A member of the RNA family "MIR2629 microRNA precursor family" from Medicago truncatula, 71 nucleotides long.
The organism belongs to Medicago, within Eukaryota.
A search with the family's covariance model found it, with a score of 61 bits.
Pairs were carried over by alignment from the consensus structure, which was predicted with RNAalifold.
RNA sequence: UACCGAAGUUUUCCUCGGCAGUUAAAUGCAGCCGGUUACAAAUUCCUCGGCAGUUAACUGCCGAGGAGGCA
Number, nucleotide and partner (000 for none) at each position: 001u000002a000003c000004c000005g000006a000007a000008g000009u000010u000011u000012u067013c066014c000015u064016c063017g062018g061019c060020a059021g058022u057023u056024a055025a054026a000027u052028g051029c050030a000031g000032c000033c000034g000035g000036u000037u000038a000039c000040a000041a000042a000043u000044u000045c000046c000047u000048c000049g000050g029051c028052a027053g000054u025055u024056a023057a022058c021059u020060g019061c018062c017063g016064a015065g000066g013067a012068g000069g000070c000071a000